[Rfam]
RNA sequence: AAACAAGUUAUGCCGAAUCUCUUUUAUAGAGUACGGGGGAAUACAUUUUUUGGGGUGAAGCUACUUUUGUAGCUGGGGAACUCCCCCCUAACCCGACAGCUAACCUCGGAGGCAAAGGAGGAAUA
Numbered sequence: 001a002a003a004c005a006a007g008u009u010a011u012g013c014c015g016a017a018u019c020u021c022u023u024u025u026a027u028a029g030a031g032u033a034c035g036g037g038g039g040a041a042u043a044c045a046u047u048u049u050u051u052g053g054g055g056u057g058a059a060g061c062u063a064c065u066u067u068u069g070u071a072g073c074u075g076g077g078g079a080a081c082u083c084c085c086c087c088c089u090a091a092c093c094c095g096a097c098a099g100c101u102a103a104c105c106u107c108g109g110a111g112g113c114a115a116a117g118g119a120g121g122a123a124u125a
Stems, first nucleotide, its partner, number of pairs: 011114004019031004034108005044052002053094003061072004075088004